[Rfam]
Description:
Small nucleolar RNA snR8: a 165-nucleotide RNA from Candida maltosa. A search with the family's covariance model found it, with a score of 94 bits. Clan: SNORA56 clan. The organism belongs to Candida maltosa, within Eukaryota. A reference for the family is Parker et al. (1988), "Genetic analysis of small nuclear RNAs in Saccharomyces cerevisiae: viable sextuple mutant", Mol Cell Biol.
RNA sequence: UUCUUCUUUGAUACGAAUGCCUUCUAUUCACUGCACCAUUUAGACCAAUGAAUGAAGUGGAGGGGAAAAGAAUGCUAGAGUAAAAAAGCGAAAAACUUCCUCAUACUGAGUUUACUUAAUUAAUAUAUUUAUAGCAUUCUUGGAUUCUGGUUUUUCGAGACAUAU
Numbered sequence: 001u002u003c004u005u006c007u008u009u010g011a012u013a014c015g016a017a018u019g020c021c022u023u024c025u026a027u028u029c030a031c032u033g034c035a036c037c038a039u040u041u042a043g044a045c046c047a048a049u050g051a052a053u054g055a056a057g058u059g060g061a062g063g064g065g066a067a068a069a070g071a072a073u074g075c076u077a078g079a080g081u082a083a084a085a086a087a088g089c090g091a092a093a094a095a096c097u098u099c100c101u102c103a104u105a106c107u108g109a110g111u112u113u114a115c116u117u118a119a120u121u122a123a124u125a126u127a128u129u130u131a132u133a134g135c136a137u138u139c140u141u142g143g144a145u146u147c148u149g150g151u152u153u154u155u156c157g158a159g160a161c162a163u164a165u
Stems, first nucleotide, its partner, number of pairs: 019075002022072002031062002034059002037054005089157003094152003106143003110139001113136001115134002118132001